The family of this 102-nucleotide sequence from Gordonia crocea is "mraW RNA".
The source organism's lineage runs through Bacteria, Bacillati, Actinomycetes, Mycobacteriales and Gordonia.
Pairs were carried over by alignment from the consensus structure, which is taken from published work.
RNA sequence: CUCCAUGGGUGAGACGAGGCCUACGCCCGAUCCGGCCCUGACGCACUUCCCCAGCGCCAGGUUCGCGAUCGGGCGGGGACCCCGGUUCAUCCAUCCCCACGG
Numbered sequence: 001c002u003c004c005a006u007g008g009g010u011g012a013g014a015c016g017a018g019g020c021c022u023a024c025g026c027c028c029g030a031u032c033c034g035g036c037c038c039u040g041a042c043g044c045a046c047u048u049c050c051c052c053a054g055c056g057c058c059a060g061g062u063u064c065g066c067g068a069u070c071g072g073g074c075g076g077g078g079a080c081c082c083c084g085g086u087u088c089a090u091c092c093a094u095c096c097c098c099a100c101g102g
Stems, first nucleotide, its partner, number of pairs: 010089004015084002018081002021078002024075009033065003037061004042056003